[Rfam]
RNA sequence: AUGUCUAGCACUCUGCGCGCUAAUCAGAGACCGGGGCUGAAUAUUUAAUAAACUGCAGUCAGGUACCUGAAGUAGCGCGCGAAGUUUUAGGCA
Numbered sequence: 001a002u003g004u005c006u007a008g009c010a011c012u013c014u015g016c017g018c019g020c021u022a023a024u025c026a027g028a029g030a031c032c033g034g035g036g037c038u039g040a041a042u043a044u045u046u047a048a049u050a051a052a053c054u055g056c057a058g059u060c061a062g063g064u065a066c067c068u069g070a071a072g073u074a075g076c077g078c079g080c081g082a083a084g085u086u087u088u089a090g091g092c093a
Base pairs, nucleotide, nucleotide: 010085011084012083014081016079017078018077019076020075021074022073030064031063032062035060036059037058038057
RNA: mir-275 microRNA precursor family